This 66-nucleotide sequence from Drosophila kikkawai belongs to the Rfam family "Oocyte entry signal (OES) from oskar mRNA".
The literature on the family includes a 2014 paper in RNA by Jambor et al., "A stem-loop structure directs oskar mRNA to microtubule minus ends".
Rfam classes the family as a cis-regulatory element.
The organism belongs to Sophophora, within Eukaryota.

RNA sequence: UUUUACUUGCUUGCACAAAAUCAACGCCGCGGCUGAUUUAUUAUUGAUGUGUUUCAAGCAGAUUCA
Numbered sequence: 001u002u003u004u005a006c007u008u009g010c011u012u013g014c015a016c017a018a019a020a021u022c023a024a025c026g027c028c029g030c031g032g033c034u035g036a037u038u039u040a041u042u043a044u045u046g047a048u049g050u051g052u053u054u055c056a057a058g059c060a061g062a063u064u065c066a
Base pairs, nucleotide, nucleotide: 005063007061009059010058011057012056013052014051015050016049017048018039019038020037021036022035023034